RNA: Plastid-rpoB 5UTR RNA
RNA sequence: CUAUGUUAUUUAUGGUUAUUCUGUCUUUAUUCCAUUCAUAAAAAAUAAA
Number, nucleotide and partner (000 for none) at each position: 001c000002u000003a000004u000005g000006u048007u047008a046009u045010u044011u043012a000013u000014g000015g000016u000017u000018a000019u000020u000021c000022u000023g000024u000025c000026u000027u000028u000029a000030u000031u000032c000033c000034a000035u000036u000037c000038a000039u000040a000041a000042a000043a011044a010045a009046u008047a007048a006049a000